[Rfam]
RNA sequence: AAAGACUAAUCGCUGAAUCAUUUCGAUGAGCGGGGGAACCAUUAGUGGUGCAGGACACCACGUGGGGUGAAUCCUUUUUAGGUAGGGCAAAGUCUCAUGCGCCCGAAUCCGUCAGCUAACCUCGUAAGCGUUAAAGAGAGCAAAG
Numbered sequence: 001a002a003a004g005a006c007u008a009a010u011c012g013c014u015g016a017a018u019c020a021u022u023u024c025g026a027u028g029a030g031c032g033g034g035g036g037a038a039c040c041a042u043u044a045g046u047g048g049u050g051c052a053g054g055a056c057a058c059c060a061c062g063u064g065g066g067g068u069g070a071a072u073c074c075u076u077u078u079u080a081g082g083u084a085g086g087g088c089a090a091a092g093u094c095u096c097a098u099g100c101g102c103c104c105g106a107a108u109c110c111g112u113c114a115g116c117u118a119a120c121c122u123c124g125u126a127a128g129c130g131u132u133a134a135a136g137a138g139a140g141c142a143a144a145g
Base pairs, nucleotide, nucleotide: 011130012129013128014127018029019028020027030125031124032123033122034121035120040064041063065110066109067108073082074081075080085104086103087102088101
RNA: c-di-AMP riboswitch aptamer (ydaO/yuaA leader)